The record is a 63-nucleotide RNA sequence from Propionispora vibrioides, which matches "Fluoride riboswitch aptamer (crcB RNA motif)" in Rfam. NCBI's taxonomy places the organism under Bacteria, Bacillati, Bacillota, Selenomonadales, Propionispora.

RNA sequence: AUUAACAGCGGCGAUGGAGUUCGCCUUACCCUUUUUGCAGACGCUAAUGACUCCUACCACUUA
Dot-bracket structure: .........[[[[..((((((]]]].......................)))))).........